[Rfam]
RNA sequence: GCUUCUCUACGGAAGUCUGUGAAGAUUAGCGUAGGGUGUUUGUUUUGUUUGUGUGUGGUGCAUUCUUAUCUGGUGUGAUAGGAAUGCACUUUUUUAUGG
Numbered sequence: 001g002c003u004u005c006u007c008u009a010c011g012g013a014a015g016u017c018u019g020u021g022a023a024g025a026u027u028a029g030c031g032u033a034g035g036g037u038g039u040u041u042g043u044u045u046u047g048u049u050u051g052u053g054u055g056u057g058g059u060g061c062a063u064u065c066u067u068a069u070c071u072g073g074u075g076u077g078a079u080a081g082g083a084a085u086g087c088a089c090u091u092u093u094u095u096a097u098g099g
Stems, first nucleotide, its partner, number of pairs: 005036006015026004057090014
Source information: A member of the RNA family "Bacteroides sRNA BTnc201" from Bacteroides pyogenes, 99 nucleotides long. Pairs were carried over by alignment from the consensus structure, which is taken from published work. The literature on the family includes a 2020 paper in Nat Commun by Ryan et al., "A high-resolution transcriptome map identifies small RNA regulation of metabolism in the gut microbe Bacteroides thetaiotaomicron". The organism belongs to Bacteroides, within Bacteria. It scores 105 bits against the family's covariance model. The family's RNA type in Rfam is small RNA.